Rfam assigns this 382-nucleotide part of an RNA from Zhenpiania hominis to the family "Bacterial large subunit ribosomal RNA". Pairs were carried over by alignment from the consensus structure, which is taken from published work. The source organism's lineage runs through Bacteria, Bacillati, Clostridia, Anaerovoracaceae and Zhenpiania. For this family Rfam cites "The comparative RNA web (CRW) site: an online database of comparative sequence and structure information for ribosomal, intron, and other RNAs" (Cannone et al., BMC Bioinformatics, 2002).
[Rfam]
RNA sequence: GAGAGACGGGUGAGAAUCCCGUCCGCCGAAAAUCUAAGGAUUCCUGAGGAAGGUUCGUCCACUCAGGGUAAGUCGGGACCUAAGCCGAGGGCGAAAGCCGUAGGCGAUGGACAACUGGUAGAGAUUCCAGUACCACCGAGCGUUGUAAGAGUGAAGUGGGGACACAGGAGGAUGAGCAGAGCGUGCCGUUGGUAGAGCACGUGCAAGCGUCGAGUGAGAAUUGGGAGGCAAAUCCCCCGAUUCAAUCGUGAGGCGUGAUGCGGAGGGAAAAAAAGUACCGGAAGCUGUGACAUUCAGACUGUCAAGAAAAGCCGCUAGCGAGACGUAAGGUGCCCGUACCGCAAACCGACACAGGUAGAUGAGGAGAGAAUCCUAAGGCGAG
Number, nucleotide and partner (000 for none) at each position: 001g000002a000003g000004a000005g023006a022007c021008g020009g019010g018011u000012g000013a000014g000015a000016a000017u000018c010019c009020c008021g007022u006023c005024c380025g379026c378027c377028g000029a000030a000031a000032a360033u359034c358035u357036a000037a000038g340039g339040a000041u000042u000043c067044c066045u065046g064047a063048g062049g000050a000051a000052g060053g059054u000055u000056c000057g000058u000059c053060c052061a000062c048063u047064c046065a045066g044067g043068g000069u000070a000071a000072g000073u000074c336075g335076g334077g333078a000079c110080c109081u000082a000083a000084g105085c104086c103087g000088a101089g000090g099091g098092c097093g000094a000095a000096a000097g092098c091099c090100g000101u088102a000103g086104g085105c084106g000107a000108u000109g080110g079111a000112c000113a000114a131115c130116u129117g128118g127119u000120a000121g000122a000123g000124a000125u000126u000127c118128c117129a116130g115131u114132a000133c000134c332135a331136c330137c329138g000139a000140g326141c325142g324143u323144u322145g000146u000147a000148a000149g000150a000151g319152u318153g000154a000155a316156g315157u314158g313159g312160g000161g000162a000163c000164a302165c301166a300167g299168g000169a000170g295171g294172a293173u000174g000175a000176g288177c287178a286179g285180a000181g202182c201183g200184u199185g198186c197187c000188g000189u000190u000191g000192g000193u000194a000195g000196a000197g186198c185199a184200c183201g182202u181203g261204c260205a000206a000207g256208c255209g254210u253211c000212g000213a000214g249215u248216g247217a000218g000219a242220a241221u240222u239223g238224g237225g236226a000227g235228g234229c000230a000231a000232a000233u000234c228235c227236c225237c224238c223239g222240a221241u220242u219243c000244a000245a000246u000247c216248g215249u214250g000251a000252g000253g210254c209255g208256u207257g000258a000259u000260g204261c203262g000263g000264a000265g000266g279267g278268a000269a276270a000271a000272a000273a000274a000275g000276u269277a000278c267279c266280g000281g000282a000283a000284g000285c179286u178287g177288u176289g000290a000291c000292a000293u172294u171295c170296a000297g000298a000299c167300u166301g165302u164303c000304a000305a000306g000307a000308a000309a000310a000311g000312c159313c158314g157315c156316u155317a000318g152319c151320g000321a000322g144323a143324c142325g141326u140327a000328a000329g137330g136331u135332g134333c077334c076335c075336g074337u000338a000339c039340c038341g000342c000343a000344a000345a000346c355347c354348g000349a000350c000351a000352c000353a000354g347355g346356u000357a035358g034359a033360u032361g000362a374363g373364g372365a371366g000367a000368g000369a000370a000371u365372c364373c363374u362375a000376a000377g027378g026379c025380g024381a000382g000